[Rfam]
The family of this 68-nucleotide sequence from Nothobranchius furzeri is "Small nucleolar RNA SNORD58". NCBI's taxonomy places the organism under Eukaryota, Clupeocephala, Euacanthomorphacea, Aplocheiloidei, Nothobranchius. A reference for the family is Galardi et al. (2002), "Purified box C/D snoRNPs are able to reproduce site-specific 2'-O-methylation of target RNA in vitro", Mol Cell Biol. snoRNA U58 is found in introns 1, 3 and 6 of the ribosomal protein RPL17 gene in humans.
RNA sequence: CUGCGCUGAUGACCAUCUUAGGACACCUUUGGAUUAAAGAUGAAACAAAUCCGUAUGAUCUGAGCAGC
Dot-bracket structure: ((((...........................................................)))).
Numbered sequence: 001c002u003g004c005g006c007u008g009a010u011g012a013c014c015a016u017c018u019u020a021g022g023a024c025a026c027c028u029u030u031g032g033a034u035u036a037a038a039g040a041u042g043a044a045a046c047a048a049a050u051c052c053g054u055a056u057g058a059u060c061u062g063a064g065c066a067g068c
Stems, first nucleotide, its partner, number of pairs: 001067004